[Rfam]
RNA sequence: GGCUGGUCUAGGUGAAGUGGUGUUUACACUAACUGAUCACCACCAGUUACAGAUUUCUUUGUUCCUUUUCCACUCCCACUGCUUCACGUGACUGGUCAAAA
Numbered sequence: 001g002g003c004u005g006g007u008c009u010a011g012g013u014g015a016a017g018u019g020g021u022g023u024u025u026a027c028a029c030u031a032a033c034u035g036a037u038c039a040c041c042a043c044c045a046g047u048u049a050c051a052g053a054u055u056u057c058u059u060u061g062u063u064c065c066u067u068u069u070c071c072a073c074u075c076c077c078a079c080u081g082c083u084u085c086a087c088g089u090g091a092c093u094g095g096u097c098a099a100a101a
Base pairs, nucleotide, nucleotide: 001097002096003095004094005093006092007091008090010089014085015084016080017079018078019077020076022075031063032062033061035059036058
RNA: Y RNA
Organism: Pongo abelii